[Rfam]
RNA sequence: CCCGCCACUAUACCUGUCCUGCCUCAGUGGCCGGUAUAUUCCAGUGGUGGCUGAGAGGAAGCCCAGCCCAGGAAGCAGUUCUCCUCUGGCUGUGGGGAGGCCUGUGCCGAACGGCUGGGAACAAGC
Numbered sequence: 001c002c003c004g005c006c007a008c009u010a011u012a013c014c015u016g017u018c019c020u021g022c023c024u025c026a027g028u029g030g031c032c033g034g035u036a037u038a039u040u041c042c043a044g045u046g047g048u049g050g051c052u053g054a055g056a057g058g059a060a061g062c063c064c065a066g067c068c069c070a071g072g073a074a075g076c077a078g079u080u081c082u083c084c085u086c087u088g089g090c091u092g093u094g095g096g097g098a099g100g101c102c103u104g105u106g107c108c109g110a111a112c113g114g115c116u117g118g119g120a121a122c123a124a125g126c
Base pairs, nucleotide, nucleotide: 005047006046007045008044009043018034019033021031022029062119063118064117065116067113071108072107076104077103078102080100081099084096085095086094
Dot-bracket structure: ....(((((........((.((......).).))........)))))..............((((.(...((...(((.((..(((.......)))..)).)))..))....)..)))).......
The family of this 126-nucleotide RNA from Pampusana beccarii is "Small nucleolar RNA SNORA65". The family is grouped with related families in Rfam's "SNORA65 clan". The source organism's lineage runs through Eukaryota, Sarcopterygii, Coelurosauria, Neognathae and Pampusana. Rfam describes the family as follows. U65 belongs to the H/ACA class of snoRNAs which are thought to guide the sites of modification of uridines to pseudouridines. On this family, see Huttenhofer et al., EMBO J 2001: "RNomics: an experimental approach that identifies 201 candidates for novel, small, non-messenger RNAs in mouse".